[Rfam]
Small nucleolar RNA SNORA11: a 129-nucleotide RNA sequence from Otolemur garnettii. Pairs were carried over by alignment from the consensus structure, which was predicted with RNAalifold. The family's RNA type in Rfam is H/ACA-box small nucleolar RNA. The organism belongs to Otolemur, within Eukaryota. U107 (SNORA11) is a member of the H/ACA class of snoRNAs that guide the sites of modification of uridines to pseudouridines.
RNA sequence: GGGGUGUACUCAGAGCAGGGGCCCUGAAGAACGGCUCCUCUGUUUACAGCACACCCAACAGGAAUCUGGGGUCACUGUGAUAAGGGGCCCAAAACUUGUGGUCUCCCUAUGAACAAAUUCCCUACAUGU
Numbered sequence: 001g002g003g004g005u006g007u008a009c010u011c012a013g014a015g016c017a018g019g020g021g022c023c024c025u026g027a028a029g030a031a032c033g034g035c036u037c038c039u040c041u042g043u044u045u046a047c048a049g050c051a052c053a054c055c056c057a058a059c060a061g062g063a064a065u066c067u068g069g070g071g072u073c074a075c076u077g078u079g080a081u082a083a084g085g086g087g088c089c090c091a092a093a094a095c096u097u098g099u100g101g102u103c104u105c106c107c108u109a110u111g112a113a114c115a116a117a118u119u120c121c122c123u124a125c126a127u128g129u
Base pairs, nucleotide, nucleotide: 002056003055004054005053006052007051013045014044015043016042017041018040019039020038021037023034024033069122070121071120076115077114078113081111082110084104085103086102088100090098091097092096